[Rfam]
Shown here is a 77-nucleotide RNA from Crocodylus porosus, a member of the family "Mammalian CPEB3 ribozyme". The organism belongs to Crocodylus, within Eukaryota. The base pairs follow the family's consensus structure, which is taken from published work. The match comes from Rfam's covariance-model search (49 bits). From the family's description: The mammalian CPEB3 ribozyme is a self cleaving RNA located in the second intron of the CPEB3 gene which belongs to a family of genes regulating messenger RNA polyadenylation.
RNA sequence: AGAGGUUUCUGAUAUGGGGGCUGUGGCAGAAGCAUUCACGUCGCAACCCCUGUCAGGUAGUACCUGCAAAUACUGGU
Numbered sequence: 001a002g003a004g005g006u007u008u009c010u011g012a013u014a015u016g017g018g019g020g021c022u023g024u025g026g027c028a029g030a031a032g033c034a035u036u037c038a039c040g041u042c043g044c045a046a047c048c049c050c051u052g053u054c055a056g057g058u059a060g061u062a063c064c065u066g067c068a069a070a071u072a073c074u075g076g077u
Stems, first nucleotide, its partner, number of pairs: 017050004022045001025077001027075003031071001032044002054066005